This 144-nucleotide RNA sequence from Robiginitalea biformata belongs to the Rfam family "SAM riboswitch aptamer (S box leader)". A search with the family's covariance model found it, with a score of 62 bits. The literature on the family includes a 1998 paper in Mol Microbiol by Grundy and Henkin, "The S box regulon: a new global transcription termination control system for methionine and cysteine biosynthesis genes in gram-positive bacteria".
RNA sequence: GCGUUAUCAAGAAAGGUGGAGGGAAUAGACCCGGUGAAACCUUAGCAACCCUUUACCCCUGUCCGGGGCAAAAGAAGGUGCUACAUUCUAUCCUGCAGCCCGGUGGCUACCCGCACCGGAAACCGCUGCCCGGACAGAUAACCA
Number, nucleotide and partner (000 for none) at each position: 001g000002c000003g142004u141005u140006a139007u138008c137009a000010a000011g000012a000013a043014a042015g041016g040017u039018g000019g000020a000021g032022g031023g030024a000025a000026u090027a089028g088029a087030c023031c022032c021033g000034g000035u000036g000037a000038a000039a017040c016041c015042u014043u013044a082045g081046c080047a079048a000049c078050c077051c074052u073053u072054u071055a000056c000057c000058c000059c000060u000061g000062u000063c000064c000065g000066g000067g000068g000069c000070a000071a054072a053073a052074g051075a000076a000077g050078g049079u047080g046081c045082u044083a000084c000085a000086u136087u029088c028089u027090a026091u133092c132093c000094u000095g000096c000097a000098g000099c000100c000101c000102g000103g000104u000105g000106g000107c000108u000109a000110c000111c000112c000113g000114c000115a000116c000117c000118g000119g000120a000121a000122a000123c000124c000125g000126c000127u000128g000129c000130c000131c000132g092133g091134a000135c000136a086137g008138a007139u006140a005141a004142c003143c000144a000